RNA: Glutamine riboswitch aptamer (glnA leader)
RNA sequence: AUCGUUCAUCUUCAACCCCCUUCAUUCAGGUUUGAAGACGGAAGUAAGGAAGUACUCCUGAAGGAACGCGCC
Numbered sequence: 001a002u003c004g005u006u007c008a009u010c011u012u013c014a015a016c017c018c019c020c021u022u023c024a025u026u027c028a029g030g031u032u033u034g035a036a037g038a039c040g041g042a043a044g045u046a047a048g049g050a051a052g053u054a055c056u057c058c059u060g061a062a063g064g065a066a067c068g069c070g071c072c
Base pairs, nucleotide, nucleotide: 003068004067005066006065007064009038010037011036012035013034014033015032041069047059048058049057